RNA sequence: UGGGUGUGGAGAGAGCAGAGCGCCCGAAAAAUGGCUUCUCUGUGUAUAACACAUCCCAACAGCAACGUGGGCUCACUCCUCACGGGUGGCAGAAUACUGUGGCCUUCCUGUGACAUCACGCCCUACACAC
Numbered sequence: 001u002g003g004g005u006g007u008g009g010a011g012a013g014a015g016c017a018g019a020g021c022g023c024c025c026g027a028a029a030a031a032u033g034g035c036u037u038c039u040c041u042g043u044g045u046a047u048a049a050c051a052c053a054u055c056c057c058a059a060c061a062g063c064a065a066c067g068u069g070g071g072c073u074c075a076c077u078c079c080u081c082a083c084g085g086g087u088g089g090c091a092g093a094a095u096a097c098u099g100u101g102g103c104c105u106u107c108c109u110g111u112g113a114c115a116u117c118a119c120g121c122c123c124u125a126c127a128c129a130c
Stems, first nucleotide, its partner, number of pairs: 002057003005053004013045001015043006022035003070123002073120001077115001081112002084105003089100004
Dot-bracket structure: .(((((((....(.((((((.(((........)))..)))))).)....)))).)))............((.(...(...((.(((..((((....))))..))).....))..)....).)).......